ATPC RNA motif: an 89-nucleotide sequence. It is one of the family's seed sequences. On this family, see Weinberg et al., Nucleic Acids Res 2007: "Identification of 22 candidate structured RNAs in bacteria using the CMfinder comparative genomics pipeline". The family's RNA type in Rfam is non-coding RNA gene.
[Rfam]
RNA sequence: UUCGCCAAUUGAUGGCGAUCUGCUAAACACAUCCGCGCGCAGGUCCGGCGAUCACCCGGGCCCGCUCCUUCAAGGAGUGUCCCUGCGCG
Numbered sequence: 001u002u003c004g005c006c007a008a009u010u011g012a013u014g015g016c017g018a019u020c021u022g023c024u025a026a027a028c029a030c031a032u033c034c035g036c037g038c039g040c041a042g043g044u045c046c047g048g049c050g051a052u053c054a055c056c057c058g059g060g061c062c063c064g065c066u067c068c069u070u071c072a073a074g075g076a077g078u079g080u081c082c083c084u085g086c087g088c089g
Stems, first nucleotide, its partner, number of pairs: 002018005036089005042062007063079007